[Rfam]
RNA sequence: CCUCAGGACACCUUGCCCUAACGCAAGGCGAUAGACCUGGGAGGGUCGUUGAA
Numbered sequence: 001c002c003u004c005a006g007g008a009c010a011c012c013u014u015g016c017c018c019u020a021a022c023g024c025a026a027g028g029c030g031a032u033a034g035a036c037c038u039g040g041g042a043g044g045g046u047c048g049u050u051g052a053a
Stems, first nucleotide, its partner, number of pairs: 011028006034047005

serC leader: a 53-nucleotide sequence from Devosia litorisediminis. About the family: This family is a putative regulatory RNA structure that is found upstream of the serC-serA operon in some alpha-proteobacteria. The final stem of the structure overlaps the ribosome binding site of the serC reading frame. The match comes from Rfam's covariance-model search (39 bits). A reference for the family is Corbino et al. (2005), "Evidence for a second class of S-adenosylmethionine riboswitches and other regulatory RNA motifs in alpha-proteobacteria", Genome Biol. By type it is a cis-regulatory leader.